[Rfam]
RNA sequence: CAUUGAGGUGAUGAUAUCUUCUUCUGAAAUUACAUGGUGUCGACUUUAAAUUAUCAGACUACAAUUAUCUGAUCAAUG
Numbered sequence: 001c002a003u004u005g006a007g008g009u010g011a012u013g014a015u016a017u018c019u020u021c022u023u024c025u026g027a028a029a030u031u032a033c034a035u036g037g038u039g040u041c042g043a044c045u046u047u048a049a050a051u052u053a054u055c056a057g058a059c060u061a062c063a064a065u066u067a068u069c070u071g072a073u074c075a076a077u078g
Stems, first nucleotide, its partner, number of pairs: 001078006
About this RNA
The family of this 78-nucleotide RNA from Trema andersonii is "Small nucleolar RNA Z155". The literature on the family includes a 2003 paper in Nucleic Acids Res by Chen et al., "The high diversity of snoRNAs in plants: identification and comparative study of 120 snoRNA genes from Oryza sativa". The pairing is the family consensus, mapped onto this sequence. Rfam links the family to the GO terms nucleolus and RNA processing. Rfam 15.1 lists 429 matches to the family in 196 species.